About this RNA: The family of this 75-nucleotide sequence from Nocardia sp. SYP-A9097 is "ASpks TB sRNA".
RNA sequence: CUUCACCGACCCGAGCCACAGCGGCCGAUCCGCCGGGCGAUCGCGGCCGUAGAUGGCCAGCAGCGCCUGCGCCUC
Numbered sequence: 001c002u003u004c005a006c007c008g009a010c011c012c013g014a015g016c017c018a019c020a021g022c023g024g025c026c027g028a029u030c031c032g033c034c035g036g037g038c039g040a041u042c043g044c045g046g047c048c049g050u051a052g053a054u055g056g057c058c059a060g061c062a063g064c065g066c067c068u069g070c071g072c073c074u075c
Base pairs, nucleotide, nucleotide: 015025016024017023031071032070033069038065039064045058047056048055049054
Record summary
On this family, see Arnvig and Young, Mol Microbiol 2009: "Identification of small RNAs in Mycobacterium tuberculosis". The source organism's lineage runs through Bacteria, Actinomycetota, Mycobacteriales, Nocardiaceae and Nocardia. The family has 77 seed sequences and 9,052 matches in Rfam 15.1.